The record is an 83-nucleotide RNA sequence from Acanthaster planci, which matches "mir-2011 microRNA precursor family" in Rfam.
RNA sequence: CUUGCUCAGUGCAGUCACUAUCACACCUUAGGUGUGUUUAGUUGAAGUUCACCAAGGUGUGUUAGUGAUGACACUGCGCAUAG
Dot-bracket structure: ((.((.(((((..(((((((.((((((((.((((...............)))))))))))).)))))))..))))).))..))
Rfam links the family to the GO terms RISC complex and miRNA-mediated post-transcriptional gene silencing.